[Rfam]
RNA sequence: GUCGAGCUUGGUAACUCAAGCUUGUCACCCAAGUGGGGGCCUAAAGGUGAUGUGGACAUUGGGCCAAUCCAGCUGGCUGGGCCAAUUGCAGACUUAAUGCUGGCCCGCCCGUUCCAAGCGGGGAGUUGGAUCUUGUGGCCCAGGCGAAGGUUUGGGCUUCUAGGUUUCUGAAGUGGUGGGUACUGCGUAGAGGCUGGAUUCACAGAGCAGCGAGAACCACCCGCUCUCUGCAGUGGAAGGAUAACGGGCUGCUGUUUGCUUGAUGGGCUGGCCCAAUAGGACAUUCAUUUUU
Numbered sequence: 001g002u003c004g005a006g007c008u009u010g011g012u013a014a015c016u017c018a019a020g021c022u023u024g025u026c027a028c029c030c031a032a033g034u035g036g037g038g039g040c041c042u043a044a045a046g047g048u049g050a051u052g053u054g055g056a057c058a059u060u061g062g063g064c065c066a067a068u069c070c071a072g073c074u075g076g077c078u079g080g081g082c083c084a085a086u087u088g089c090a091g092a093c094u095u096a097a098u099g100c101u102g103g104c105c106c107g108c109c110c111g112u113u114c115c116a117a118g119c120g121g122g123g124a125g126u127u128g129g130a131u132c133u134u135g136u137g138g139c140c141c142a143g144g145c146g147a148a149g150g151u152u153u154g155g156g157c158u159u160c161u162a163g164g165u166u167u168c169u170g171a172a173g174u175g176g177u178g179g180g181u182a183c184u185g186c187g188u189a190g191a192g193g194c195u196g197g198a199u200u201c202a203c204a205g206a207g208c209a210g211c212g213a214g215a216a217c218c219a220c221c222c223g224c225u226c227u228c229u230g231c232a233g234u235g236g237a238a239g240g241a242u243a244a245c246g247g248g249c250u251g252c253u254g255u256u257u258g259c260u261u262g263a264u265g266g267g268c269u270g271g272c273c274c275a276a277u278a279g280g281a282c283a284u285u286c287a288u289u290u291u292u
Base pairs, nucleotide, nucleotide: 001040002039003038004023005022006021007020008019009018010017011016028037029036030035043292044291045290046289047288048287049286050285052284053283054282057279059276060275061274062273063272064271065270066269069266070265071264073262075260076259090257091256092255094254101251102250103249104248105247106246107245109240110239112238113237114236115235116234118231119230120229121228122227123226124225125224126223128167129166130165131164132163133162135160137158138157139156140155141154142153143152144151145150168173175221176220177219178218179217184214186212187211188210194205195204196203
Rfam assigns this 292-nucleotide RNA sequence from Striga asiatica to the family "Plant signal recognition particle RNA". It scores 204 bits against the family's covariance model. Its family is annotated with SRP-dependent cotranslational protein targeting to membrane, signal sequence recognition and signal recognition particle, endoplasmic reticulum targeting in the Gene Ontology. The literature on the family includes a 2002 paper in Curr Opin Struct Biol by Wild et al., "Towards the structure of the mammalian signal recognition particle". Clan: SRP clan.